A member of the RNA family "permuted transfer-messenger RNA" from Sagittula marina, 211 nucleotides long. Pairs were carried over by alignment from the consensus structure, which is taken from published work. For this family Rfam cites "Phylogenetic analysis of tmRNA secondary structure" (Williams and Bartel, RNA, 1996). The match comes from Rfam's covariance-model search (152 bits).
[Rfam]
RNA sequence: GAGCAUAAACGCGCAUGUAAUAAACGGAUCGGACCCGGGGGCGGUACCCGGCGGCUCCACCAAAUAUCUCUUCGUUUGAGGGAUCUUGGGGCCGAAACAGGAUCGACGAACGCGUAAAGAUGUAGCUUUGCUUCGGUGAGAUACCACCGUUAUCGGUUCACAAAGUACAAUUGCAAACGACAAUCGUGCUCCGGUUGCUCUCGCAGCGUAA
Number, nucleotide and partner (000 for none) at each position: 001g133002a132003g131004c130005a129006u000007a000008a000009a000010c000011g000012c000013g123014c122015a121016u120017g000018u000019a000020a000021u000022a000023a000024a000025c112026g111027g000028a000029u109030c108031g107032g000033a000034c000035c051036c050037g049038g048039g047040g000041g000042c000043g000044g000045u000046a000047c039048c038049c037050g036051g035052c094053g093054g092055c091056u090057c089058c088059a000060c000061c000062a000063a000064a000065u000066a000067u000068c000069u000070c000071u000072u000073c000074g000075u000076u000077u000078g000079a000080g000081g000082g000083a000084u000085c000086u000087u000088g058089g057090g056091g055092c054093c053094g052095a000096a000097a000098c000099a000100g000101g000102a000103u000104c000105g000106a000107c031108g030109a029110a000111c026112g025113c000114g000115u000116a000117a000118a000119g000120a016121u015122g014123u013124a000125g000126c000127u000128u000129u005130g004131c003132u002133u001134c149135g148136g147137u146138g000139a000140g000141a000142u000143a000144c000145c000146a137147c136148c135149g134150u000151u000152a000153u000154c000155g000156g000157u000158u000159c000160a000161c000162a000163a000164a000165g000166u000167a000168c000169a000170a000171u000172u000173g000174c000175a000176a000177a000178c000179g000180a000181c000182a000183a000184u000185c000186g000187u000188g000189c000190u000191c000192c000193g000194g000195u000196u000197g000198c000199u000200c000201u000202c000203g000204c000205a000206g000207c000208g000209u000210a000211a000